[Rfam]
RNA sequence: GCGUUCCUCACUGGAGAGAGGCGGGCCCUUGAGCCCGCCCACCGAAGGGGCAAGCGAGCGCGGGACAGCCACCCGCUCGUCAAUCUCUCAGGUACCCCGGACAGCGAGGACAUC
Numbered sequence: 001g002c003g004u005u006c007c008u009c010a011c012u013g014g015a016g017a018g019a020g021g022c023g024g025g026c027c028c029u030u031g032a033g034c035c036c037g038c039c040c041a042c043c044g045a046a047g048g049g050g051c052a053a054g055c056g057a058g059c060g061c062g063g064g065a066c067a068g069c070c071a072c073c074c075g076c077u078c079g080u081c082a083a084u085c086u087c088u089c090a091g092g093u094a095c096c097c098c099g100g101a102c103a104g105c106g107a108g109g110a111c112a113u114c
Stems, first nucleotide, its partner, number of pairs: 006109004011104003020039006041093003044089002048087003054080007

Record summary:
The record is a 114-nucleotide RNA from Roseateles saccharophilus, which matches "Glycine riboswitch aptamer" in Rfam. Lineage of the source: Bacteria > Betaproteobacteria > Burkholderiales > Sphaerotilaceae > Roseateles.